[Rfam]
Nucleotides: 058
Stems, first nucleotide, its partner, number of pairs: 008053018
Number, partner (000 for none) and nucleotide at each position: 001000a002000a003000g004000c005000u006000g007000u008053u009052g010051a011050g012049a013048a014047c015046u016045u017044u018043u019042u020041g021040a022039a023038u024037c025036a026000a027000g028000u029000a030000g031000u032000a033000u034000g035000g036025u037024g038023a039022u040021u041020c042019a043018a044017a045016a046015a047014g048013u049012u050011c051010u052009c053008a054000c055000a056000a057000a058000u
Plastid-ccsA-ndhD-1 3UTR RNA: a 58-nucleotide RNA sequence. Plastid-ccsA-ndhD-1 is a non-coding RNA (ncRNA) recognised in plastids. It was found in the three prime untranslated region (3UTR) of ccsA and ndhD genes, its 3UTR location suggests a role in transcript maturation. Its Rfam clan is "Plastid-ccsA_ndhD 3UTR RNA clan". For this family Rfam cites "Retrograde signaling in plants: A critical review focusing on the GUN pathway and beyond" (Richter et al., Plant Commun, 2023).